The record is a 75-nucleotide RNA from Rhodamnia argentea, which matches "Plastid-ycf2 5UTR RNA" in Rfam. For this family Rfam cites "Retrograde signaling in plants: A critical review focusing on the GUN pathway and beyond" (Richter et al., Plant Commun, 2023). About the family: Plastid ycf2 is a non-coding RNA (ncRNA) recognised in plastids. It was found in the prime untranslated region (5UTR) of ycf2 genes, it presents a tRNA-like motif which suggests it can be involved in mRNA maturation, particularly involved in defining the precise 5' end of the transcript. Rfam classes the family as a cis-regulatory element. NCBI's taxonomy places the organism under Eukaryota, Streptophytina, Myrtaceae, Myrtoideae, Rhodamnia.
[Rfam]
RNA sequence: GCGCAUCCAGUAGGAAUUGAACCUACGAAUUCGCCAAUUAUGAGCUGGGUGCUUUAACCAUUCAGCCAUAUAUGA
Numbered sequence: 001g002c003g004c005a006u007c008c009a010g011u012a013g014g015a016a017u018u019g020a021a022c023c024u025a026c027g028a029a030u031u032c033g034c035c036a037a038u039u040a041u042g043a044g045c046u047g048g049g050u051g052c053u054u055u056a057a058c059c060a061u062u063c064a065g066c067c068a069u070a071u072a073u074g075a
Stems, first nucleotide, its partner, number of pairs: 004074003010026005040069003044066008